The family of this 208-nucleotide RNA sequence from Eremothecium gossypii is "Small nucleolar RNA snR63".
A search with the family's covariance model found it, with a score of 60 bits.
The literature on the family includes a 1999 paper in Acta Biochim Pol by Filipowicz et al., "Structure and biogenesis of small nucleolar RNAs acting as guides for ribosomal RNA modification".
Gene Ontology terms of the family: RNA processing and nucleolus.
It is annotated as a C/D-box small nucleolar RNA.
The organism belongs to Eremothecium gossypii, within Eukaryota.
RNA sequence: AUGCAUGAUGAUAACCCCAUUUUCGCCAGUCUGUUGAGAACAGGGCGUGGACUCGCUGUCCGCGCCGUAAGACCAUCCCGCGUUGUGCGUCUGGCGCGCGGUUCUGCAGCUGGCCCCGUUCUGGGGCCGCUGCGGCCACCGCGCGCCGGAGCUGGGCGUCUUUUUGUGUUAUGAGUGGCUGGAUUCUUUUGUCAUAGUUACACUGAGC
Numbered sequence: 001a002u003g004c005a006u007g008a009u010g011a012u013a014a015c016c017c018c019a020u021u022u023u024c025g026c027c028a029g030u031c032u033g034u035u036g037a038g039a040a041c042a043g044g045g046c047g048u049g050g051a052c053u054c055g056c057u058g059u060c061c062g063c064g065c066c067g068u069a070a071g072a073c074c075a076u077c078c079c080g081c082g083u084u085g086u087g088c089g090u091c092u093g094g095c096g097c098g099c100g101g102u103u104c105u106g107c108a109g110c111u112g113g114c115c116c117c118g119u120u121c122u123g124g125g126g127c128c129g130c131u132g133c134g135g136c137c138a139c140c141g142c143g144c145g146c147c148g149g150a151g152c153u154g155g156g157c158g159u160c161u162u163u164u165u166g167u168g169u170u171a172u173g174a175g176u177g178g179c180u181g182g183a184u185u186c187u188u189u190u191g192u193c194a195u196a197g198u199u200a201c202a203c204u205g206a207g208c
Stems, first nucleotide, its partner, number of pairs: 005195005010024002013021002026182006033176003040169003044066009069162005085157002088154001092148011105134006112127001114126004